[Rfam]
RNA sequence: GUCACCGCCGGACGGAACCGGUCGAGAGGGUUGGGGAGCUCGAUGACCGAUCGGAUCUCCGAGACACGGCCUGGGUCUAUUGGGAGCCCAGACCUGUCGCUCUGGCGAAGGAG
Numbered sequence: 001g002u003c004a005c006c007g008c009c010g011g012a013c014g015g016a017a018c019c020g021g022u023c024g025a026g027a028g029g030g031u032u033g034g035g036g037a038g039c040u041c042g043a044u045g046a047c048c049g050a051u052c053g054g055a056u057c058u059c060c061g062a063g064a065c066a067c068g069g070c071c072u073g074g075g076u077c078u079a080u081u082g083g084g085a086g087c088c089c090a091g092a093c094c095u096g097u098c099g100c101u102c103u104g105g106c107g108a109a110g111g112a113g
Stems, first nucleotide, its partner, number of pairs: 006107007013061004018054007028041005063098004068094002072090005